[Rfam]
RNA sequence: AUGGAUUUUCUUUUUAAAAAAUUGGUUUAUUUGUCUCUUAAAUUAGUUUAAUAUCUGAUAUGUGGGUCAUUGGCUCACACGAUAUUAACUCAUUUUUUGUAAGGGGGAGGCCCAUCAAAAUAGCUUGUUACUUGGGUCUUCACGCAUCGCCUUAGCCAGGCCUGGCGCACCCCAC
Numbered sequence: 001a002u003g004g005a006u007u008u009u010c011u012u013u014u015u016a017a018a019a020a021a022u023u024g025g026u027u028u029a030u031u032u033g034u035c036u037c038u039u040a041a042a043u044u045a046g047u048u049u050a051a052u053a054u055c056u057g058a059u060a061u062g063u064g065g066g067u068c069a070u071u072g073g074c075u076c077a078c079a080c081g082a083u084a085u086u087a088a089c090u091c092a093u094u095u096u097u098u099g100u101a102a103g104g105g106g107g108a109g110g111c112c113c114a115u116c117a118a119a120a121u122a123g124c125u126u127g128u129u130a131c132u133u134g135g136g137u138c139u140u141c142a143c144g145c146a147u148c149g150c151c152u153u154a155g156c157c158a159g160g161c162c163u164g165g166c167g168c169a170c171c172c173c174a175c
Base pairs, nucleotide, nucleotide: 001015003013004012005011039060042059043058044057045056046055062078063077064076065075066074067073068072106141107140108139109138110137111136112135113134121130122129123128144168145167147165148164149163151160152159153158
A member of the RNA family "U2 spliceosomal RNA" from Solanum commersonii, 175 nucleotides long. It is annotated as a spliceosomal small nuclear RNA. The match comes from Rfam's covariance-model search (52 bits). NCBI's taxonomy places the organism under Eukaryota, Embryophyta, Spermatophyta, Magnoliopsida, Solanum. The base pairs follow the family's consensus structure, which is taken from published work. About the family: U2 is a small nuclear RNA (snRNA) component of the spliceosome (involved in pre-mRNA splicing). The literature on the family includes a 1997 paper in Nucleic Acids Res by Zwieb, "The uRNA database".